[Rfam]
RNA sequence: UCCGAAUACCUGGGUCGGACCUCCGCUGGUUUUUUUUUCCGCGGUGAUACUUCAAUGCGAAUGUGUAUCACCGGGUAAAAACUGGUAGAGGUCCGAUUCAGUAAA
Numbered sequence: 001u002c003c004g005a006a007u008a009c010c011u012g013g014g015u016c017g018g019a020c021c022u023c024c025g026c027u028g029g030u031u032u033u034u035u036u037u038u039c040c041g042c043g044g045u046g047a048u049a050c051u052u053c054a055a056u057g058c059g060a061a062u063g064u065g066u067a068u069c070a071c072c073g074g075g076u077a078a079a080a081a082c083u084g085g086u087a088g089a090g091g092u093c094c095g096a097u098u099c100a101g102u103a104a105a
Base pairs, nucleotide, nucleotide: 016095017094018093019092020091021090022089025086026085027084028083029082030081031080032079033078034077039075040074042073044071045070046069047068048067049066
This 105-nucleotide RNA from Caenorhabditis briggsae belongs to the Rfam family "mir-36 microRNA precursor family". The family has 46 seed sequences and 199 matches in Rfam 15.1. On this family, see Ohler et al., RNA 2004: "Patterns of flanking sequence conservation and a characteristic upstream motif for microRNA gene identification". Rfam links the family to the GO terms RISC complex and miRNA-mediated post-transcriptional gene silencing. Pairs were carried over by alignment from the consensus structure, which was predicted with WAR. The family is grouped with related families in Rfam's "mir-36 clan".